[Rfam]
RNA sequence: GUUCUUCUAGCGACAGGUUUUCCCUGUGAUCUGCAGAGUACAAAGAAAUACAUCUGAGAUCAUCGUGAAAGCCAGUUGUUUCCAAGAA
Numbered sequence: 001g002u003u004c005u006u007c008u009a010g011c012g013a014c015a016g017g018u019u020u021u022c023c024c025u026g027u028g029a030u031c032u033g034c035a036g037a038g039u040a041c042a043a044a045g046a047a048a049u050a051c052a053u054c055u056g057a058g059a060u061c062a063u064c065g066u067g068a069a070a071g072c073c074a075g076u077u078g079u080u081u082c083c084a085a086g087a088a
Stems, first nucleotide, its partner, number of pairs: 009080004016073007024065001027062006035055003038051002